[Rfam]
RNA: Guanidine-II riboswitch aptamer (mini-ykkC)
RNA sequence: AUGUGGGGACGACCUCACCGCUCUAAUUAAUAAUGAGGACGACCUCA
Numbered sequence: 001a002u003g004u005g006g007g008g009a010c011g012a013c014c015u016c017a018c019c020g021c022u023c024u025a026a027u028u029a030a031u032a033a034u035g036a037g038g039a040c041g042a043c044c045u046c047a
Stems, first nucleotide, its partner, number of pairs: 003018006034047005